Shown here is a 69-nucleotide RNA from Drosophila willistoni, a member of the family "mir-6 microRNA precursor family". Gene Ontology terms of the family: RISC complex and miRNA-mediated post-transcriptional gene silencing. The family has 36 seed sequences and 58 matches in Rfam 15.1.
RNA sequence: AGUAGAGAGAAUAGUUGCUGUGUUUUAUGCCCUUUUCAAUUUCAUAUCACAGUGGCUGUUCUUUUUGUG
Numbered sequence: 001a002g003u004a005g006a007g008a009g010a011a012u013a014g015u016u017g018c019u020g021u022g023u024u025u026u027a028u029g030c031c032c033u034u035u036u037c038a039a040u041u042u043c044a045u046a047u048c049a050c051a052g053u054g055g056c057u058g059u060u061c062u063u064u065u066u067g068u069g
Stems, first nucleotide, its partner, number of pairs: 003067002006064007015055008024046001026044001
Description: This family consists of the microRNA (miRNA) precursor mir-6 which appears to be Drosophila specific. The literature on the family includes a 2002 paper in Genes Dev by Mourelatos et al., "miRNPs: a novel class of ribonucleoproteins containing numerous microRNAs". The sequence is in the family's curated seed alignment. The base pairs follow the family's consensus structure, which was predicted with PFOLD.